This 88-nucleotide RNA sequence from Brachionus plicatilis belongs to the Rfam family "Vault RNA".
[Rfam]
RNA sequence: GCGUCGGCUUAGUAGAGUGGUUUCAUCGAAAUUAAUACGAGAGGAACCUUUUGAACAUAACUAACCACUUAUGCAAUCCAACGCUUUU
Numbered sequence: 001g002c003g004u005c006g007g008c009u010u011a012g013u014a015g016a017g018u019g020g021u022u023u024c025a026u027c028g029a030a031a032u033u034a035a036u037a038c039g040a041g042a043g044g045a046a047c048c049u050u051u052u053g054a055a056c057a058u059a060a061c062u063a064a065c066c067a068c069u070u071a072u073g074c075a076a077u078c079c080a081a082c083g084c085u086u087u088u
Stems, first nucleotide, its partner, number of pairs: 002083003006079002012072004017068004026054006
Rfam 15.1 lists 2,873 matches to the family in 431 species.